Shown here is a 296-nucleotide sequence from Anabarilius grahami, a member of the family "Nuclear RNase P". For this family Rfam cites "Ribonuclease P: unity and diversity in a tRNA processing ribozyme" (Frank and Pace, Annu Rev Biochem, 1998). The family is grouped with related families in Rfam's "RNaseP clan". The family's RNA type in Rfam is ribozyme.
RNA sequence: ACGGUAGGAAGUUCACUGUAGAGGUUACAAACUGAGUGUUAAUCACUCAUCCAAUCACCUCGGGGAAGGUCUGAGACAGGAGCCAAUCGCUGUCCUCACAGGACAUCAUCUGAACAGAUGAGCGAGUGCACAGAAAAAUGGGUCACAUGGUUCACGCACAAGACGUUGGUAAGCGAUAUAGCCAAUCAACUGAUGCGAUCCCCGUCGACUUGGAAACGCUCGCGGCUGGCGCAAUGAGUUCAAUGUGUGAACUAGCACAAGAUGCUAGAACCCAAUUCAGACUACUCUCCUACCGC
Numbered sequence: 001a002c003g004g005u006a007g008g009a010a011g012u013u014c015a016c017u018g019u020a021g022a023g024g025u026u027a028c029a030a031a032c033u034g035a036g037u038g039u040u041a042a043u044c045a046c047u048c049a050u051c052c053a054a055u056c057a058c059c060u061c062g063g064g065g066a067a068g069g070u071c072u073g074a075g076a077c078a079g080g081a082g083c084c085a086a087u088c089g090c091u092g093u094c095c096u097c098a099c100a101g102g103a104c105a106u107c108a109u110c111u112g113a114a115c116a117g118a119u120g121a122g123c124g125a126g127u128g129c130a131c132a133g134a135a136a137a138a139u140g141g142g143u144c145a146c147a148u149g150g151u152u153c154a155c156g157c158a159c160a161a162g163a164c165g166u167u168g169g170u171a172a173g174c175g176a177u178a179u180a181g182c183c184a185a186u187c188a189a190c191u192g193a194u195g196c197g198a199u200c201c202c203c204g205u206c207g208a209c210u211u212g213g214a215a216a217c218g219c220u221c222g223c224g225g226c227u228g229g230c231g232c233a234a235u236g237a238g239u240u241c242a243a244u245g246u247g248u249g250a251a252c253u254a255g256c257a258c259a260a261g262a263u264g265c266u267a268g269a270a271c272c273c274a275a276u277u278c279a280g281a282c283u284a285c286u287c288u289c290c291u292a293c294c295g296c
Base pairs, nucleotide, nucleotide: 002295003294004293007290008289009288012251013250014249015248016247021061022060023059024058034048035047036046037045038044071280072279073278074277075276081227082226083225084224091105092104093103094102095101106121107120108119109118110117111116122223123222124221125220126219127218128217142209143208144207252268253267254266255265256264257263